[Rfam]
RNA sequence: CAACAACGGAAAGGAGGUGGUCGAAUGUCUCAUUGUCACAUGCCGCUCAACGCGGAUCGGAUGAGCAAUGCCUCCACCCUGGAGGUUCGCUGCCUCUGAGUCCGCCGCCACGCGGCUGACAAUGGAAGGGUCGCCCCGGAAACGGGGCGGCCCU
Numbered sequence: 001c002a003a004c005a006a007c008g009g010a011a012a013g014g015a016g017g018u019g020g021u022c023g024a025a026u027g028u029c030u031c032a033u034u035g036u037c038a039c040a041u042g043c044c045g046c047u048c049a050a051c052g053c054g055g056a057u058c059g060g061a062u063g064a065g066c067a068a069u070g071c072c073u074c075c076a077c078c079c080u081g082g083a084g085g086u087u088c089g090c091u092g093c094c095u096c097u098g099a100g101u102c103c104g105c106c107g108c109c110a111c112g113c114g115g116c117u118g119a120c121a122a123u124g125g126a127a128g129g130g131u132c133g134c135c136c137c138g139g140a141a142a143c144g145g146g147g148c149g150g151c152c153c154u
Base pairs, nucleotide, nucleotide: 017022031124032123033122034121035120036119037118044055047052056062057061065097069092070091072084073083074082075081104116105115106114107113108112127154128153129152130151131150132149133148134147135146136145137144138143
RNA: caulobacter sRNA CC2171